[Rfam]
RNA sequence: AUCACGGGUUCCCGCGCAAAUCUUAUUCCUGCCUCAUUCGCGCCGUGAAGGAGCCUCACUGGAUGCCGUUAAUGCUCAAGUUGCCUCGACGGCCCGGCUCAUCGAACGGCUCGGAUACGUCAGCCCCCCAGCCCUCCAGGUCGUUUGGAGAGCCGGGCCACAACAGUCGAGACACAGGGCUGCCUCACGAGGCAGCCUUUUC
Numbered sequence: 001a002u003c004a005c006g007g008g009u010u011c012c013c014g015c016g017c018a019a020a021u022c023u024u025a026u027u028c029c030u031g032c033c034u035c036a037u038u039c040g041c042g043c044c045g046u047g048a049a050g051g052a053g054c055c056u057c058a059c060u061g062g063a064u065g066c067c068g069u070u071a072a073u074g075c076u077c078a079a080g081u082u083g084c085c086u087c088g089a090c091g092g093c094c095c096g097g098c099u100c101a102u103c104g105a106a107c108g109g110c111u112c113g114g115a116u117a118c119g120u121c122a123g124c125c126c127c128c129c130a131g132c133c134c135u136c137c138a139g140g141u142c143g144u145u146u147g148g149a150g151a152g153c154c155g156g157g158c159c160a161c162a163a164c165a166g167u168c169g170a171g172a173c174a175c176a177g178g179g180c181u182g183c184c185u186c187a188c189g190a191g192g193c194a195g196c197c198u199u200u201u202c
Stems, first nucleotide, its partner, number of pairs: 037049001039047002083173001085171005091159010106144006113137002123132002177198008
RNA: Bradyrhizobiaceae sRNA BjrC174